This 104-nucleotide RNA from Lotus japonicus belongs to the Rfam family "Small nucleolar RNA R32/R81/Z41". The family has 6 seed sequences and 238 matches in Rfam 15.1. Taxonomically the source falls in Lotus (Eukaryota, Spermatophyta, Fabaceae, Papilionoideae). Rfam's curators put it in the seed alignment. The literature on the family includes a 2001 paper in J Mol Biol by Barneche et al., "Identification of 66 box C/D snoRNAs in Arabidopsis thaliana: extensive gene duplications generated multiple isoforms predicting new ribosomal RNA 2'-O-methylation sites".
[Rfam]
RNA sequence: AGACGAACAUGAUGAAAGCAAAAAUUAAAAAGAAUGCGUGAUCAUCAAACAUUAUGUGUUUGAUAUGAUCGAACUUGUCAUGCUACGUUCUUUCUGAUUCGUCU
Numbered sequence: 001a002g003a004c005g006a007a008c009a010u011g012a013u014g015a016a017a018g019c020a021a022a023a024a025u026u027a028a029a030a031a032g033a034a035u036g037c038g039u040g041a042u043c044a045u046c047a048a049a050c051a052u053u054a055u056g057u058g059u060u061u062g063a064u065a066u067g068a069u070c071g072a073a074c075u076u077g078u079c080a081u082g083c084u085a086c087g088u089u090c091u092u093u094c095u096g097a098u099u100c101g102u103c104u
Base pairs, nucleotide, nucleotide: 004101005100006099007098